[Rfam]
RNA sequence: ACCCACCGGUUCCCUUUCCCAAUGGAUCUUGAUGCUGGUCUUGGUGGUCGUAAAGGAGGAAGAGCAGACGGAAGCUGGCCUCAUGGCAAUAGAGCAUUGGGUCAGAUUCAUACGUGC
Dot-bracket structure: ..((.((...........(((.(.((((........))))..).))).......)).))...............(((((((.................)))))))............
Rfam assigns this 117-nucleotide RNA from Microtus ochrogaster to the family "Small nucleolar RNA SNORA61". Rfam describes the family as follows. ACA61 is a member of the H/ACA class of snoRNA that guide the sites of modification of uridines to pseudouridines. Lineage of the source: Eukaryota > Bilateria > Vertebrata > Dipnotetrapodomorpha > Microtus. The family's RNA type in Rfam is H/ACA-box small nucleolar RNA. Pairs were carried over by alignment from the consensus structure, which was predicted with PFOLD. A search with the family's covariance model found it, with a score of 80 bits.